[Rfam]
This 326-nucleotide sequence from Rotaria sp. Silwood1 belongs to the Rfam family "RNase MRP". A search with the family's covariance model found it, with a score of 86 bits.
RNA sequence: GUGUAUCUUACACGUUUGCUGUUCGAGUUACAUACGAGUGUCAUUAAUGAUCACUCUUUAUAUUGGAUUGAAUUUGUUCUCAAAUUUAUCCGAUACUCGAGGGAAAGUCCCCGAACCCAGGGAUAGCAACUAUCCGAUCUUUUAUAUAAGAUCUAUCAUGUUUAUAUGCUGAACACUAUAGACAAUCUUAUUUACCAAGAUGAGAUUUAUCUCAGAGUUAAUAAUUUUGUCUGUGUUUAGUGAACAUGAUAUCGUUGCAAAUAAAGUUAUGCAAACAGUCUAUGGAAACAUCGACUUACACGAGGGGUGCUUAUGAGUGAGGUACA
Numbered sequence: 001g002u003g004u005a006u007c008u009u010a011c012a013c014g015u016u017u018g019c020u021g022u023u024c025g026a027g028u029u030a031c032a033u034a035c036g037a038g039u040g041u042c043a044u045u046a047a048u049g050a051u052c053a054c055u056c057u058u059u060a061u062a063u064u065g066g067a068u069u070g071a072a073u074u075u076g077u078u079c080u081c082a083a084a085u086u087u088a089u090c091c092g093a094u095a096c097u098c099g100a101g102g103g104a105a106a107g108u109c110c111c112c113g114a115a116c117c118c119a120g121g122g123a124u125a126g127c128a129a130c131u132a133u134c135c136g137a138u139c140u141u142u143u144a145u146a147u148a149a150g151a152u153c154u155a156u157c158a159u160g161u162u163u164a165u166a167u168g169c170u171g172a173a174c175a176c177u178a179u180a181g182a183c184a185a186u187c188u189u190a191u192u193u194a195c196c197a198a199g200a201u202g203a204g205a206u207u208u209a210u211c212u213c214a215g216a217g218u219u220a221a222u223a224a225u226u227u228u229g230u231c232u233g234u235g236u237u238u239a240g241u242g243a244a245c246a247u248g249a250u251a252u253c254g255u256u257g258c259a260a261a262u263a264a265a266g267u268u269a270u271g272c273a274a275a276c277a278g279u280c281u282a283u284g285g286a287a288a289c290a291u292c293g294a295c296u297u298a299c300a301c302g303a304g305g306g307g308u309g310c311u312u313a314u315g316a317g318u319g320a321g322g323u324a325c326a
Stems, first nucleotide, its partner, number of pairs: 002326010014276006022101007037080002040077002043074001105312003109309001110307003122134004146161003150157002163248003170239006180232004192220001194218002202213004278295003282291002

On this family, see Piccinelli et al., Nucleic Acids Res 2005: "Identification and analysis of ribonuclease P and MRP RNA in a broad range of eukaryotes". Taxonomically the source falls in Rotaria (Eukaryota, Metazoa, Bdelloidea, Philodinida). By type it is a ribozyme.